[Rfam]
RNA: Molybdenum/Tungsten riboswitch aptamer (Moco RNA motif)
RNA sequence: AUGAGAAUCAAACUCCUAGCCUUGGUGCCUAAGUGAUGCGCUUAUUGCGCGUGAUACGGUGCCUUGGCCGUGGCCUUCGUGGUCACCAGGGUGCGAGGUAGAAAUGCCUGCAUCUCCCGUAUUUGGAAAGGUGUUUAUGGUGAGUCAAC
Numbered sequence: 001a002u003g004a005g006a007a008u009c010a011a012a013c014u015c016c017u018a019g020c021c022u023u024g025g026u027g028c029c030u031a032a033g034u035g036a037u038g039c040g041c042u043u044a045u046u047g048c049g050c051g052u053g054a055u056a057c058g059g060u061g062c063c064u065u066g067g068c069c070g071u072g073g074c075c076u077u078c079g080u081g082g083u084c085a086c087c088a089g090g091g092u093g094c095g096a097g098g099u100a101g102a103a104a105u106g107c108c109u110g111c112a113u114c115u116c117c118c119g120u121a122u123u124u125g126g127a128a129a130g131g132u133g134u135u136u137a138u139g140g141u142g143a144g145u146c147a148a149c
Stems, first nucleotide, its partner, number of pairs: 011135003015131002019068003024063006033055002036052006070086005089115006096109005116126002
Dot-bracket structure: ..........(((.((..(((..((((((...((.((((((.....)))))).))..))))))..))).(((((.......)))))..((((((.(((((....)))))))))))((.......))...)).)))..............